Overview:
Shown here is an 86-nucleotide RNA from Microcebus murinus, a member of the family "mir-384 microRNA precursor family".
[Rfam]
RNA sequence: UGUUAAAUCAGGAAUUGUAACAAUUCCUAGGCAUGUUGUAUAAUGUUGUAAGUCAUUCCUAGAAAUUGUUCACAAUGCCUGUAACA
Numbered sequence: 001u002g003u004u005a006a007a008u009c010a011g012g013a014a015u016u017g018u019a020a021c022a023a024u025u026c027c028u029a030g031g032c033a034u035g036u037u038g039u040a041u042a043a044u045g046u047u048g049u050a051a052g053u054c055a056u057u058c059c060u061a062g063a064a065a066u067u068g069u070u071c072a073c074a075a076u077g078c079c080u081g082u083a084a085c086a
Base pairs, nucleotide, nucleotide: 009081010080011079012078014076015075016074017073018072019070020069021068022067023066024065025064027062028061029060030059031058039050040049041048
NCBI's taxonomy places the organism under Eukaryota, Vertebrata, Teleostomi, Eutheria, Microcebus. Pairs were carried over by alignment from the consensus structure, which was predicted with RNAalifold.